[Rfam]
About this RNA: The record is a 265-nucleotide part of an RNA from Emiliania huxleyi, which matches "Eukaryotic large subunit ribosomal RNA" in Rfam. NCBI's taxonomy places the organism under Eukaryota, Prymnesiophyceae, Isochrysidales, Emiliania, Emiliania huxleyi.
RNA sequence: GAGUCUGACACGUGUGCGAGUACCCGGGUGGCAAGCCCGCGUGCGGAAUGAAAGUGAAGGGCAUGCCCUGCCAACCGACCUUGACCUUCUGUGAGGGGUUUGAGUGGAGCACACCUGUCGGGACCCGAAAGAUGGUGAACUAUGCCUGGGUAGGGUGAAGCCAGAGGAAACUCUGGUGGAGGCUCGUAGCGAUACUGACGUGCAAAUCGUUCGUCGAAUCUGGGUAUAGGGGCGAAAGACUAAUCGAACCAUCUAGUAGCUGGUU
Number, nucleotide and partner (000 for none) at each position: 001g000002a000003g000004u000005c121006u120007g119008a118009c117010a116011c000012g114013u113014g112015u111016g110017c109018g000019a000020g044021u043022a042023c000024c000025c039026g038027g037028g036029u035030g000031g000032c000033a000034a000035g029036c028037c027038c026039g025040c000041g000042u022043g021044c020045g000046g000047a000048a055049u054050g000051a000052a000053a000054g049055u048056g000057a000058a000059g000060g072061g071062c070063a069064u000065g000066c000067c000068c000069u063070g062071c061072c060073a000074a105075c104076c102077g101078a100079c098080c097081u096082u000083g000084a000085c000086c091087u000088u000089c000090u000091g086092u000093g000094a000095g000096g081097g080098g079099u000100u078101u077102g076103a000104g075105u074106g000107g000108a000109g017110c016111a015112c014113a013114c012115c000116u010117g009118u008119c007120g006121g005122g000123a000124c263125c262126c000127g260128a000129a000130a000131g253132a252133u251134g250135g249136u248137g000138a000139a000140c229141u228142a227143u226144g225145c224146c223147u222148g221149g220150g219151u217152a000153g185154g184155g183156u182157g000158a000159a000160g177161c176162c175163a174164g173165a172166g171167g000168a000169a000170a000171c166172u165173c164174u163175g162176g161177u160178g000179g000180a000181g000182g156183c155184u154185c153186g000187u000188a000189g214190c213191g212192a211193u000194a210195c209196u000197g208198a207199c000200g000201u000202g000203c000204a000205a000206a000207u198208c197209g195210u194211u192212c191213g190214u189215c000216g000217a151218a000219u150220c149221u148222g147223g146224g145225u144226a143227u142228a141229g140230g000231g241232g240233c000234g000235a000236a000237a000238g000239a000240c232241u231242a000243a000244u000245c000246g000247a000248a136249c135250c134251a133252u132253c131254u000255a000256g000257u000258a000259g000260c127261u000262g125263g124264u000265u000